[Rfam]
RNA sequence: GAUAAUGGGAGUGAAAAACUCCCACGCCGGAAGACCAAGGUUUCCUAUCCCAUGCUAAUCAGGGUAGGGUAAGUCGGCCCCUAAGGCGAGGCGGAAACGCGUAGUCGAUGGAAAACAGGUCAAUAUUCCUGUACCGAUGUUCAUUGCGAUGGGGGGACGGAGAAGGCUAGGUGAGCCGGGCGUUGGUAGUCCCGGUGAAAGUGCGUAGGCUGAGGACUUAGGUAAAUCCGGGUCCUUAAGGCCGAGACACGAGACGAGUACCCACGGGUGCGAAGUCAUUGAUGCCAUGCUUCCGGGAAAAGCCUCUAAGCUUCAGAUGAACAUUGACCGUACCCCAAACCGACACAGGUGGUCAGGUAGAGAAUACUAAGGCGCU
Numbered sequence: 001g002a003u004a005a006u007g008g009g010a011g012u013g014a015a016a017a018a019c020u021c022c023c024a025c026g027c028c029g030g031a032a033g034a035c036c037a038a039g040g041u042u043u044c045c046u047a048u049c050c051c052a053u054g055c056u057a058a059u060c061a062g063g064g065u066a067g068g069g070u071a072a073g074u075c076g077g078c079c080c081c082u083a084a085g086g087c088g089a090g091g092c093g094g095a096a097a098c099g100c101g102u103a104g105u106c107g108a109u110g111g112a113a114a115a116c117a118g119g120u121c122a123a124u125a126u127u128c129c130u131g132u133a134c135c136g137a138u139g140u141u142c143a144u145u146g147c148g149a150u151g152g153g154g155g156g157a158c159g160g161a162g163a164a165g166g167c168u169a170g171g172u173g174a175g176c177c178g179g180g181c182g183u184u185g186g187u188a189g190u191c192c193c194g195g196u197g198a199a200a201g202u203g204c205g206u207a208g209g210c211u212g213a214g215g216a217c218u219u220a221g222g223u224a225a226a227u228c229c230g231g232g233u234c235c236u237u238a239a240g241g242c243c244g245a246g247a248c249a250c251g252a253g254a255c256g257a258g259u260a261c262c263c264a265c266g267g268g269u270g271c272g273a274a275g276u277c278a279u280u281g282a283u284g285c286c287a288u289g290c291u292u293c294c295g296g297g298a299a300a301a302g303c304c305u306c307u308a309a310g311c312u313u314c315a316g317a318u319g320a321a322c323a324u325u326g327a328c329c330g331u332a333c334c335c336c337a338a339a340c341c342g343a344c345a346c347a348g349g350u351g352g353u354c355a356g357g358u359a360g361a362g363a364a365u366a367c368u369a370a371g372g373c374g375c376u
Stems, first nucleotide, its partner, number of pairs: 006024006025374004033354004039334002044068006053061002075330003080111002085106003089102001091100003115132005135326011146311002151306004159293004165286003170280005175196006197255001201250003208243003213236007221229002258271005340349002356368004
RNA: Bacterial large subunit ribosomal RNA, nucleotides 1257 to 1632
Organism: Idiomarina loihiensis